[Rfam]
RNA sequence: GCACUGACAGGAAGUUUUACCGUUGUGUUCCUUUACUGCUUCUUGAAGGAGAGCGACGUCAAAGAAGCAGACAGUGC
Numbered sequence: 001g002c003a004c005u006g007a008c009a010g011g012a013a014g015u016u017u018u019a020c021c022g023u024u025g026u027g028u029u030c031c032u033u034u035a036c037u038g039c040u041u042c043u044u045g046a047a048g049g050a051g052a053g054c055g056a057c058g059u060c061a062a063a064g065a066a067g068c069a070g071a072c073a074g075u076g077c
Base pairs, nucleotide, nucleotide: 001077002076003075004074005073006072009032010031011030012029037069038068039067040066041065042064043063044062
The record is a 77-nucleotide RNA sequence from cyanobacterium PCC 7702, which matches "CyVA-1 RNA" in Rfam. Cyanobacteria, Acidobacteria (1 example), Verrucomicrobia (1 example). NCBI's taxonomy places the organism under Bacteria, Bacillati, Cyanobacteriota, Cyanophyceae, Stigonemataceae.